[Rfam]
RNA sequence: AGUUGAAGGUUGCGAUGGCCUCUCCUCCCGGCCCAUCCUCUUCAGCUGUUCCCCUCUGGAGGUUGACACCUUCAAAACUCAAGGGUCCCGGUUAUACCGGAGACCCUUUUUU
Numbered sequence: 001a002g003u004u005g006a007a008g009g010u011u012g013c014g015a016u017g018g019c020c021u022c023u024c025c026u027c028c029c030g031g032c033c034c035a036u037c038c039u040c041u042u043c044a045g046c047u048g049u050u051c052c053c054c055u056c057u058g059g060a061g062g063u064u065g066a067c068a069c070c071u072u073c074a075a076a077a078c079u080c081a082a083g084g085g086u087c088c089c090g091g092u093u094a095u096a097c098c099g100g101a102g103a104c105c106c107u108u109u110u111u112u
Stems, first nucleotide, its partner, number of pairs: 001047005007041003015036004057074007082107006088100004

This 112-nucleotide sequence from Pararhizobium polonicum belongs to the Rfam family "Alphaproteobacterial ar15". The family's RNA type in Rfam is small RNA. Clan: suhB sRNA clan. For this family Rfam cites "Independent activity of the homologous small regulatory RNAs AbcR1 and AbcR2 in the legume symbiont Sinorhizobium meliloti" (Torres-Quesada et al., PLoS One, 2013). It scores 89 bits against the family's covariance model. The source organism's lineage runs through Bacteria, Pseudomonadota, Alphaproteobacteria, Rhizobiaceae and Pararhizobium.